[Rfam]
RNA sequence: AACUGCUGAUGACUCCUUUGUAUUUUUCUGACACCUCGUAUGAGCGCUGCUCAGCAGUGCCUGAUUUAUAAUUCACUCUCUGAGGUUC
Numbered sequence: 001a002a003c004u005g006c007u008g009a010u011g012a013c014u015c016c017u018u019u020g021u022a023u024u025u026u027u028c029u030g031a032c033a034c035c036u037c038g039u040a041u042g043a044g045c046g047c048u049g050c051u052c053a054g055c056a057g058u059g060c061c062u063g064a065u066u067u068a069u070a071a072u073u074c075a076c077u078c079u080c081u082g083a084g085g086u087u088c
Stems, first nucleotide, its partner, number of pairs: 001087004046058005